A member of the RNA family "Bacterial RNase P class A" from Acidaminococcus intestini, 337 nucleotides long. Rfam classes the family as a ribozyme.
RNA sequence: UGAGUGUGAAAGAUAAUCGCGGCAGCGCAAGCUGAUGAGGAAAGUCCGAGCUCCACAGGGCAGGAUGCUGGAUAACGUCCAGUGAGGGUGACCUUAAGGAAAGUGCCACAGAAAACAAACCGCCGGCUCGCCGGUAAGGAUGAAACGGUGCGGUAAGAGCGCACCAGCGGCCAAGUGAUUGGUCGGCUUGGUAAACCCCAUCCGGAGCAAGACCAAAUAGGGAAGGGAUGAAGCGGCCCGCUGAUCCUUCCGGGUUGUGUCGCUUGAGUCCAUAGGCAACUAUGGAACUAGAUAAAUGAUUAUCGUAACAGAACUCGGCUUACUGAUCACUCAUAUC
Numbered sequence: 001u002g003a004g005u006g007u008g009a010a011a012g013a014u015a016a017u018c019g020c021g022g023c024a025g026c027g028c029a030a031g032c033u034g035a036u037g038a039g040g041a042a043a044g045u046c047c048g049a050g051c052u053c054c055a056c057a058g059g060g061c062a063g064g065a066u067g068c069u070g071g072a073u074a075a076c077g078u079c080c081a082g083u084g085a086g087g088g089u090g091a092c093c094u095u096a097a098g099g100a101a102a103g104u105g106c107c108a109c110a111g112a113a114a115a116c117a118a119a120c121c122g123c124c125g126g127c128u129c130g131c132c133g134g135u136a137a138g139g140a141u142g143a144a145a146c147g148g149u150g151c152g153g154u155a156a157g158a159g160c161g162c163a164c165c166a167g168c169g170g171c172c173a174a175g176u177g178a179u180u181g182g183u184c185g186g187c188u189u190g191g192u193a194a195a196c197c198c199c200a201u202c203c204g205g206a207g208c209a210a211g212a213c214c215a216a217a218u219a220g221g222g223a224a225g226g227g228a229u230g231a232a233g234c235g236g237c238c239c240g241c242u243g244a245u246c247c248u249u250c251c252g253g254g255u256u257g258u259g260u261c262g263c264u265u266g267a268g269u270c271c272a273u274a275g276g277c278a279a280c281u282a283u284g285g286a287a288c289u290a291g292a293u294a295a296a297u298g299a300u301u302a303u304c305g306u307a308a309c310a311g312a313a314c315u316c317g318g319c320u321u322a323c324u325g326a327u328c329a330c331u332c333a334u335a336u337c
Base pairs, nucleotide, nucleotide: 001333002332003331004330005329006328010324012304013303014302015301016300017299018298020037021036023034024033025032026031042321043320044319046318047317048316049315050314051207052206053205054204058239059238060237061236063203064202065201066200067199068082069081070080071079072078083097084095085094086093087092098198099197103196104195105192106191107190120139121138122135123134124133125132126131147165148164149163150162151161152160167187168185169184170183171182172181173180174179211261212260213259214257221251222250223249224248225247226246232242233241234240269286270285271284272283273282274281275280